[Rfam]
RNA sequence: UUAUACACUGAGUGGCCAGAUUAUUAUGAAUUCUUAACACAUAAUAAUCUGGUCACUCAGUGCAUAU
Dot-bracket structure: ...(.((((((((((((.((((((((((...........)))))))))).)))))))))))).)...